[Rfam]
RNA: KRAS 3' UTR cis-regulatory element
Organism: Oryctolagus cuniculus
RNA sequence: UCCAAAUAUUAUAUUUUUUCUAUAAAAAGGAAAAAAUGGUAAAAAUUUC
Numbered sequence: 001u002c003c004a005a006a007u008a009u010u011a012u013a014u015u016u017u018u019u020c021u022a023u024a025a026a027a028a029g030g031a032a033a034a035a036a037u038g039g040u041a042a043a044a045a046u047u048u049c
Stems, first nucleotide, its partner, number of pairs: 014045005020039004